Shown here is a 72-nucleotide RNA from Rhizopus stolonifer, a member of the family "tRNA". The family's RNA type in Rfam is transfer RNA. Lineage of the source: Eukaryota > Opisthokonta > Mucoromycota > Rhizopodaceae > Rhizopus. A search with the family's covariance model found it, with a score of 64 bits.

[Rfam]
RNA sequence: AGCAUCUUAGCGCAGUGGCAGCGCGCCGGGCUCAUAACCCGGAGGUCGGCUGAUCGAAACAGCCAGAUGCUA
Number, nucleotide and partner (000 for none) at each position: 001a071002g070003c069004a068005u067006c066007u065008u000009a000010g024011c023012g022013c021014a000015g000016u000017g000018g000019c000020a000021g013022c012023g011024c010025g000026c042027c041028g040029g039030g038031c000032u000033c000034a000035u000036a000037a000038c030039c029040c028041g027042g026043a000044g000045g000046u000047c000048g064049g063050c062051u061052g060053a000054u000055c000056g000057a000058a000059a000060c052061a051062g050063c049064c048065a007066g006067a005068u004069g003070c002071u001072a000